[Rfam]
RNA: Lysine riboswitch aptamer
RNA sequence: CGAGCCAGAAGAGGCGCGUCGCCCAGGCAGUGUAUCGGAGGAGCCGAAAUCCUACGAAGAUACAUCAGGGGGAGCGGCGCCGAGAUCAUCAGCCCGCGGCAGGCAAAUGAUCGACUACAGGGGCUGAAUCCCCUGGGUUGUCACCGGAACACCCCAAAGGGUGUCGGCCAGGUGGGGCGCUUCUGGGUGU
Dot-bracket structure: .....((((((....(((((((.(.....(((((((......................)))))))......).)))))))...((((((..(((.......)))..))))))((((.((((((......)))))))))).(((((.(.....................).)))))....)))))).....